[Rfam]
RNA sequence: CAUGGCUUGGCUGUACCAACUUAGCCCCCUCCUAGGGGGGGCUAAGAUGGUACAGCGGAGAGUCAUC
Number, nucleotide and partner (000 for none) at each position: 001c000002a066003u065004g064005g063006c062007u061008u060009g000010g056011c055012u054013g053014u052015a051016c050017c049018a048019a000020c046021u045022u044023a043024g042025c041026c040027c039028c038029c037030u036031c000032c000033u000034a000035g000036g030037g029038g028039g027040g026041g025042c024043u023044a022045a021046g020047a000048u018049g017050g016051u015052a014053c013054a012055g011056c010057g000058g000059a000060g008061a007062g006063u005064c004065a003066u002067c000
RNA: mir-6644 microRNA precursor family
Organism: Gallus gallus